[Rfam]
RNA: ASpks TB sRNA
RNA sequence: CUUGACCGAACCGAGCCAUAGCGGCCGACCGGCCCGAUCUUGUCCGUAGGUGGCCAAUAGUGCCUGCGCCUC
Numbered sequence: 001c002u003u004g005a006c007c008g009a010a011c012c013g014a015g016c017c018a019u020a021g022c023g024g025c026c027g028a029c030c031g032g033c034c035c036g037a038u039c040u041u042g043u044c045c046g047u048a049g050g051u052g053g054c055c056a057a058u059a060g061u062g063c064c065u066g067c068g069c070c071u072c
Base pairs, nucleotide, nucleotide: 015025016024017023032067033066035062036061040057041056042055044053045052046051